A member of the RNA family "TPP riboswitch aptamer (THI element)" from Clostridium sp. CAG:81, 108 nucleotides long. The match comes from Rfam's covariance-model search (64 bits). Gene Ontology term of the family: thiamine pyrophosphate binding. The source organism's lineage runs through Bacteria, Bacillati, Bacillota, Eubacteriales and Clostridium. Vitamin B(1) in its active form thiamin pyrophosphate (TPP) is an essential coenzyme that is synthesised by coupling of pyrimidine and thiazole moieties in bacteria.
RNA sequence: AUAAACAGACCGGGGAGCCUGACGGAUCAGGCUGAGAGUUGGCUGUAUCGCCAAGACCCGUAUACCUGAUUUGGAUCAUGCCAACGUAGGAAGCUGCUGAAGAGAAAG
Numbered sequence: 001a002u003a004a005a006c007a008g009a010c011c012g013g014g015g016a017g018c019c020u021g022a023c024g025g026a027u028c029a030g031g032c033u034g035a036g037a038g039u040u041g042g043c044u045g046u047a048u049c050g051c052c053a054a055g056a057c058c059c060g061u062a063u064a065c066c067u068g069a070u071u072u073g074g075a076u077c078a079u080g081c082c083a084a085c086g087u088a089g090g091a092a093g094c095u096g097c098u099g100a101a102g103a104g105a106a107a108g
Stems, first nucleotide, its partner, number of pairs: 008095001010093001011060004017032005039054005065090004071084004